[Rfam]
RNA sequence: GAGGGUCGGCCCCUCGCAAUCGGCUUGCAGGAGCAGGUUGCAAACCACCGUAAGCGGCUUGGGUCAAAAGCCCCGGUCGUGAGCGUUACGGAAAAGGCGCCAUUUAAGGUGUCAGGU
Numbered sequence: 001g002a003g004g005g006u007c008g009g010c011c012c013c014u015c016g017c018a019a020u021c022g023g024c025u026u027g028c029a030g031g032a033g034c035a036g037g038u039u040g041c042a043a044a045c046c047a048c049c050g051u052a053a054g055c056g057g058c059u060u061g062g063g064u065c066a067a068a069a070g071c072c073c074c075g076g077u078c079g080u081g082a083g084c085g086u087u088a089c090g091g092a093a094a095a096g097g098c099g100c101c102a103u104u105u106a107a108g109g110u111g112u113c114a115g116g117u
Stems, first nucleotide, its partner, number of pairs: 001015005016041006023034004046116001048091006054080002057077003061073004096113006

The record is a 117-nucleotide sequence from Chlorobium phaeobacteroides, which matches "Group II catalytic intron D1-D4-2" in Rfam.
Lineage of the source: Bacteria > Pseudomonadati > Chlorobiia > Chlorobium > Chlorobium phaeobacteroides.
For this family Rfam cites "Group II introns: structure and catalytic versatility of large natural ribozymes" (Lehmann and Schmidt, Crit Rev Biochem Mol Biol, 2003).
From the family's description: Group II introns are found in rRNA, tRNA and mRNA of organelles in fungi, plants and protists, and also in mRNA in bacteria.